MIR5269 microRNA precursor family: an 80-nucleotide RNA sequence from Medicago truncatula. Taxonomically the source falls in Medicago (Eukaryota, Streptophytina, Fabales, Papilionoideae). Its family is annotated with RISC complex and miRNA-mediated post-transcriptional gene silencing in the Gene Ontology.
RNA sequence: UUAGGUGAAAUUAAUGUAGGACCUACACUUCGGAAAUGGAACUCACAUAAAGUAGUGGGACAUACAUUGAUUUCACCCAA
Numbered sequence: 001u002u003a004g005g006u007g008a009a010a011u012u013a014a015u016g017u018a019g020g021a022c023c024u025a026c027a028c029u030u031c032g033g034a035a036a037u038g039g040a041a042c043u044c045a046c047a048u049a050a051a052g053u054a055g056u057g058g059g060a061c062a063u064a065c066a067u068u069g070a071u072u073u074c075a076c077c078c079a080a
Base pairs, nucleotide, nucleotide: 001080002079004077005076006075007074008073009072010071011070012069013068014067015066016065017064018063023058024057025056027053028052029051030050032048